[Rfam]
RNA sequence: UCUAUUGAUGAUGAUGAUCUCAUAUCUUACAUCAUUGGAGGUCUCAAUUCUGAGUAUACUUCAUUCAUCACUUCUUUCUCCUUUGCAACACGAGAUCAUCCCCUCCUUUUAUGAUUUUCAAUCGGAAUUGCUUAGCUAUGAAA
Numbered sequence: 001u002c003u004a005u006u007g008a009u010g011a012u013g014a015u016g017a018u019c020u021c022a023u024a025u026c027u028u029a030c031a032u033c034a035u036u037g038g039a040g041g042u043c044u045c046a047a048u049u050c051u052g053a054g055u056a057u058a059c060u061u062c063a064u065u066c067a068u069c070a071c072u073u074c075u076u077u078c079u080c081c082u083u084u085g086c087a088a089c090a091c092g093a094g095a096u097c098a099u100c101c102c103c104u105c106c107u108u109u110u111a112u113g114a115u116u117u118u119c120a121a122u123c124g125g126a127a128u129u130g131c132u133u134a135g136c137u138a139u140g141a142a143a
Base pairs, nucleotide, nucleotide: 005141006140007139090112092110093109094108095107
Small nucleolar RNA Z247: a 143-nucleotide sequence from Salix koriyanagi. A reference for the family is Chen et al. (2003), "The high diversity of snoRNAs in plants: identification and comparative study of 120 snoRNA genes from Oryza sativa", Nucleic Acids Res. The family's RNA type in Rfam is C/D-box small nucleolar RNA. Lineage of the source: Eukaryota > eudicotyledons > rosids > Salicaceae > Salix.